The record is an 89-nucleotide RNA sequence from Apolygus lucorum, which matches "mir-276 microRNA precursor family" in Rfam. A reference for the family is Skalsky et al. (2010), "Identification of microRNAs expressed in two mosquito vectors, Aedes albopictus and Culex quinquefasciatus", BMC Genomics. Rfam 15.1 lists 200 matches to the family in 170 species.
RNA sequence: UUUCUGUUGAUCCAAAAGCGAGGUAUAGAGUUCCUACGAGUUUUUUUCGGUUCUGUAGGAACUUCAUACCGUGCUCUUGGUGAUAUAGU
Numbered sequence: 001u002u003u004c005u006g007u008u009g010a011u012c013c014a015a016a017a018g019c020g021a022g023g024u025a026u027a028g029a030g031u032u033c034c035u036a037c038g039a040g041u042u043u044u045u046u047u048c049g050g051u052u053c054u055g056u057a058g059g060a061a062c063u064u065c066a067u068a069c070c071g072u073g074c075u076c077u078u079g080g081u082g083a084u085a086u087a088g089u
Base pairs, nucleotide, nucleotide: 012080013079014078017075018074019073020072022070023069024068025067026066028064029063030062031061032060033059034058035057036056037055